Background:
The record is a 77-nucleotide sequence from Jannaschia rubra, which matches "Singlet oxygen resistance RNA X" in Rfam. Rfam links the family to the GO term response to photooxidative stress. From the family's description: SorX (RSs2461)like SorY is a singlet oxygen induced sRNA that counteracts oxidative stress by targeting mRNA for a transporter in Rhodobacter. It also has an impact on resistance against organic hydroperoxides.

RNA sequence: UACCGGCGCAUCUGCGGGACGACACAGAUGCAACCUCCCUGUUGGACUUGCCCGGGCCUCCGUGCCCGGGUGUCUUU
Number, nucleotide and partner (000 for none) at each position: 001u000002a000003c000004c000005g000006g000007c000008g031009c030010a029011u028012c027013u026014g025015c000016g000017g000018g000019a000020c000021g000022a000023c000024a000025c014026a013027g012028a011029u010030g009031c008032a000033a000034c000035c000036u000037c000038c000039c000040u000041g000042u000043u000044g000045g000046a000047c000048u000049u000050g071051c070052c069053c068054g067055g066056g065057c064058c000059u000060c000061c000062g000063u000064g057065c056066c055067c054068g053069g052070g051071u050072g000073u000074c000075u000076u000077u000